[Rfam]
RNA sequence: GCGCGCUUAGCUCAGUUGGUUAGAGUGCCACAUUGACAUUGUGGAGGUCACUGGUUCGAGUCCAGUAGCGCGCA
Numbered sequence: 001g002c003g004c005g006c007u008u009a010g011c012u013c014a015g016u017u018g019g020u021u022a023g024a025g026u027g028c029c030a031c032a033u034u035g036a037c038a039u040u041g042u043g044g045a046g047g048u049c050a051c052u053g054g055u056u057c058g059a060g061u062c063c064a065g066u067a068g069c070g071c072g073c074a
Base pairs, nucleotide, nucleotide: 001073002072003071004070005069006068007067010026011025012024013023028044029043030042031041032040050066051065052064053063054062
The family of this 74-nucleotide RNA sequence from Thermogemmata fonticola is "tRNA". A search with the family's covariance model found it, with a score of 71 bits. Rfam classes the family as a transfer RNA. Lineage of the source: Bacteria > Pseudomonadati > Planctomycetia > Gemmatales > Thermogemmata. Clan: tRNA clan.